HDV ribozyme from F. prausnitzii: a 78-nucleotide sequence. Rfam 15.1 lists 3,803 matches to the family in 91 species. Rfam links the family to the GO term catalytic activity.
Nucleotides: 078
Base pairs, nucleotide, nucleotide: 001037002036003035004034005033006032007031018030019029020028043064044063045062046061047060048059049058050057051056
Number, partner (000 for none) and nucleotide at each position: 001037a002036u003035c004034u005033c006032a007031c008000a009000a010000c011000g012000u013000u014000a015000a016000u017000c018030g019029c020028c021000u022000c023000c024000u025000c026000g027000u028020g029019g030018c031007g032006u033005g034004a035003g036002a037001u038000g039000g040000a041000a042000a043064c044063a045062g046061c047060a048059u049058a050057u051056u052000u053000g054000c055000a056051a057050a058049u059048a060047u061046g062045u063044u064043g065000g066000c067000u068000a069000a070000g071000a072000u073000u074000a075000a076000c077000a078000g